[Rfam]
Makes More Granules Regulator RNA (mmgR): an 80-nucleotide sequence from Novosphingobium sp. PhB165. Rfam describes the family as follows. SuhB later renamed mmgR (makes more granules regulator) was a putative non-coding RNA found multiple times in the Agrobacterium tumefaciens genome and related alpha-proteobacteria. Other non-coding RNAs uncovered in the same analysis include: speF, ybhL, metA, and serC.Several studies inSinorhizobium meliloti showed that suhB element is indeed a non-coding RNA:firstly it was detected on Northern blot and called Sm8RNA, secondly in an RNAseq study referred to as SmelC689.The mutant phenotype's (strain lacking the small RNA) cytoplasm contains higher content of polyhydroxybutyrate (PBH)storage granules than wild type strain. The sRNA is required to limit the PBH intracellular accumulation when the nitrogen-fixing Sinorhizobium meliloti is under condition of surplus carbon in relation to nitrogen. It has been renamed to mmgR. Further study confirmed that mmgR fine-tunes the regulation of PBH storage.Northern blot confirmed the expression of the sRNA in other rhizobia species. Taxonomically the source falls in Novosphingobium (Bacteria, Alphaproteobacteria, Sphingomonadales, Sphingomonadaceae). A search with the family's covariance model found it, with a score of 47 bits. The family's RNA type in Rfam is small RNA.
RNA sequence: GGAGGGGGCCUUUCAGGCAUCCUCUCCCAAAAACUUUCCAAAGGGGCUGGUCUUCGGACCGGCCCUUCUUUUUUGCCCGC
Numbered sequence: 001g002g003a004g005g006g007g008g009c010c011u012u013u014c015a016g017g018c019a020u021c022c023u024c025u026c027c028c029a030a031a032a033a034c035u036u037u038c039c040a041a042a043g044g045g046g047c048u049g050g051u052c053u054u055c056g057g058a059c060c061g062g063c064c065c066u067u068c069u070u071u072u073u074u075g076c077c078c079g080c
Base pairs, nucleotide, nucleotide: 008018009017010016011015044065045064046063047062048061049060050059051058052057